This 54-nucleotide RNA from Lentivirus capartenc belongs to the Rfam family "ribosomal frameshift element". Gene Ontology term of the family: viral translational frameshifting.
RNA sequence: AGGGGGAUACGUGUGGUGCCGUCCGCUCCCCCUAUGGAAUAACUUCAGCACCAC
Dot-bracket structure: (((((((.....[[[[[[[.......)))))))..(......)....]]]]]]]

The family's consensus secondary structure is taken from published work. For this family Rfam cites "An extended signal involved in eukaryotic -1 frameshifting operates through modification of the E site tRNA" (Bekaert and Rousset, Mol Cell, 2005). The organism belongs to Caprine arthritis encephalitis virus, within Viruses.